A member of the RNA family "Singlet oxygen resistance RNA X" from Octadecabacter temperatus, 74 nucleotides long. The pairing is the family consensus, mapped onto this sequence. SorX (RSs2461)like SorY is a singlet oxygen induced sRNA that counteracts oxidative stress by targeting mRNA for a transporter in Rhodobacter. For this family Rfam cites "Photooxidative stress-induced and abundant small RNAs in Rhodobacter sphaeroides" (Berghoff et al., Mol Microbiol, 2009). The match comes from Rfam's covariance-model search (50 bits). The source organism's lineage runs through Bacteria, Pseudomonadati, Rhodobacterales, Roseobacteraceae and Octadecabacter.

RNA sequence: UACAUGCAUAGAGAGGCGUUGCCUCUUUAUACCUCCCUGUUGGACUUUGCCAGGCCUAGUGCCCGGCGUUUCUU
Number, nucleotide and partner (000 for none) at each position: 001u000002a000003c000004a000005u000006g000007c000008a030009u029010a028011g027012a026013g025014a024015g000016g000017c000018g000019u000020u000021g000022c000023c000024u014025c013026u012027u011028u010029a009030u008031a000032c000033c000034u000035c000036c000037c000038u000039g000040u000041u000042g000043g000044a000045c000046u000047u000048u068049g067050c066051c065052a000053g063054g062055c061056c000057u000058a000059g000060u000061g055062c054063c053064c000065g051066g050067c049068g048069u000070u000071u000072c000073u000074u000